The family of this 117-nucleotide RNA from Brassica rapa is "Small nucleolar RNA snoR100". Its family is annotated with nucleolus and RNA processing in the Gene Ontology. The sequence is in the family's curated seed alignment. NCBI's taxonomy places the organism under Eukaryota, Magnoliopsida, Mesangiospermae, Brassica, Brassica rapa. On this family, see Marker et al., Curr Biol 2002: "Experimental RNomics: identification of 140 candidates for small non-messenger RNAs in the plant Arabidopsis thaliana". Rfam classes the family as an H/ACA-box small nucleolar RNA.

[Rfam]
RNA sequence: UAAUGAAUGUAGCAUGGUACUGUACACGGAAACUAAAUCAUGAGUUUGAAAUGUCUGUGCCCUCUCUGAGUACCUAAUCGGUUCUUUGAUUUGCGGGCCUGGUUUAAACCCACAUUC
Numbered sequence: 001u002a003a004u005g006a007a008u009g010u011a012g013c014a015u016g017g018u019a020c021u022g023u024a025c026a027c028g029g030a031a032a033c034u035a036a037a038u039c040a041u042g043a044g045u046u047u048g049a050a051a052u053g054u055c056u057g058u059g060c061c062c063u064c065u066c067u068g069a070g071u072a073c074c075u076a077a078u079c080g081g082u083u084c085u086u087u088g089a090u091u092u093g094c095g096g097g098c099c100u101g102g103u104u105u106a107a108a109c110c111c112a113c114a115u116u117c
Base pairs, nucleotide, nucleotide: 012025014023015022043100044099046097047096053090054089055088057084059082